[Rfam]
RNA: c-di-AMP riboswitch aptamer (ydaO/yuaA leader)
RNA sequence: UCAAGUGGGUAGCCUAAUUCAAAUUCCGAUGGGGUUUGGAGCGGAGGAACCAAUAUUUGGGGCUAAUUUCAUCACUGUAAUGAGAGAGACACCUUCCAGUCUUAGCCCGUCAGCUAACUCCGUAGGCAAUGGAAGGAACCCCC
Numbered sequence: 001u002c003a004a005g006u007g008g009g010u011a012g013c014c015u016a017a018u019u020c021a022a023a024u025u026c027c028g029a030u031g032g033g034g035u036u037u038g039g040a041g042c043g044g045a046g047g048a049a050c051c052a053a054u055a056u057u058u059g060g061g062g063c064u065a066a067u068u069u070c071a072u073c074a075c076u077g078u079a080a081u082g083a084g085a086g087a088g089a090c091a092c093c094u095u096c097c098a099g100u101c102u103u104a105g106c107c108c109g110u111c112a113g114c115u116a117a118c119u120c121c122g123u124a125g126g127c128a129a130u131g132g133a134a135g136g137a138a139c140c141c142c143c
Stems, first nucleotide, its partner, number of pairs: 012127003018040008041123006051059002060108003068084004087102004